[Rfam]
RNA sequence: CAAAGCAAGAAGAAGCGCCCGCUUCUCACCUGAUUCGCCAGGCAGCGUACAGGUUAUCUUAUUCGGCAACGAUUACAGAAGUGUGGGCGGAUUUUUCUCCCACGCUUUUUUUAUUGG
Numbered sequence: 001c002a003a004a005g006c007a008a009g010a011a012g013a014a015g016c017g018c019c020c021g022c023u024u025c026u027c028a029c030c031u032g033a034u035u036c037g038c039c040a041g042g043c044a045g046c047g048u049a050c051a052g053g054u055u056a057u058c059u060u061a062u063u064c065g066g067c068a069a070c071g072a073u074u075a076c077a078g079a080a081g082u083g084u085g086g087g088c089g090g091a092u093u094u095u096u097c098u099c100c101c102a103c104g105c106u107u108u109u110u111u112u113a114u115u116g117g
Stems, first nucleotide, its partner, number of pairs: 011026006028054003034049001036047003082104006089097003

The record is a 117-nucleotide RNA sequence from Alkalicoccus halolimnae, which matches "Ribosomal protein L20 leader" in Rfam.
About the family: This family is a putative r-protein leader autoregulatory structure found in B. subtilis and other low-GC Gram-positive bacteria. It is located in the 5' untranslated regions of mRNAs encoding initiation factor 3 followed by ribosomal proteins L35 and L20 (infC-rpmI-rplT). A Rho-independent transcription terminator structure that is probably involved in regulation is included at the 3' end.
The match comes from Rfam's covariance-model search (70 bits).
NCBI's taxonomy places the organism under Bacteria, Bacillati, Bacilli, Bacillaceae, Alkalicoccus.
On this family, see Zengel and Lindahl, Prog Nucleic Acid Res Mol Biol 1994: "Diverse mechanisms for regulating ribosomal protein synthesis in Escherichia coli".
It is annotated as a cis-regulatory leader.